RNA: Small nucleolar RNA snoR8a
RNA sequence: GAGUUAGUGGUGAUUAGAAAAAUAAUUCCUUGUUCUGACUUGCUCAAUUUGAACAACUUUUAUUACAGUCAUAAAAUCUGAGCUAC
Dot-bracket structure: ..((.((...........................................................................))))